The family of this 80-nucleotide sequence from Suricata suricatta is "Small nucleolar RNA U2-19".
Gene Ontology terms of the family: nucleolus and RNA processing.
By type it is a C/D-box small nucleolar RNA.
Lineage of the source: Eukaryota > Vertebrata > Teleostomi > Carnivora > Suricata.
[Rfam]
RNA sequence: GUGUCUUGAUGAAAUCAGCUAAAUUCCACUAUCAGAAGACCUUCCAGUCUACCUAAUGCAUGAUCUCUGUGGUUUUGAGA
Numbered sequence: 001g002u003g004u005c006u007u008g009a010u011g012a013a014a015u016c017a018g019c020u021a022a023a024u025u026c027c028a029c030u031a032u033c034a035g036a037a038g039a040c041c042u043u044c045c046a047g048u049c050u051a052c053c054u055a056a057u058g059c060a061u062g063a064u065c066u067c068u069g070u071g072g073u074u075u076u077g078a079g080a
Base pairs, nucleotide, nucleotide: 030058031057032056037050038049039048040047